[Rfam]
RNA sequence: AAUGGUAGAAUGACAAAUCAGAUUUUUUUUCUCUUGAUUUUUAGCUUUUUCCUCCGGAAUUUCUUUCGAAAAAAAUUUAAAUCUAACUAAAAAUGCUAAAAAUCAGGAGAAAAAAUCUCAUUUGUCAUUCUCUCAUU
Numbered sequence: 001a002a003u004g005g006u007a008g009a010a011u012g013a014c015a016a017a018u019c020a021g022a023u024u025u026u027u028u029u030u031c032u033c034u035u036g037a038u039u040u041u042u043a044g045c046u047u048u049u050u051c052c053u054c055c056g057g058a059a060u061u062u063c064u065u066u067c068g069a070a071a072a073a074a075a076u077u078u079a080a081a082u083c084u085a086a087c088u089a090a091a092a093a094u095g096c097u098a099a100a101a102a103u104c105a106g107g108a109g110a111a112a113a114a115a116u117c118u119c120a121u122u123u124g125u126c127a128u129u130c131u132c133u134c135a136u137u
Stems, first nucleotide, its partner, number of pairs: 001137005007131012020118008031109011043097002047093004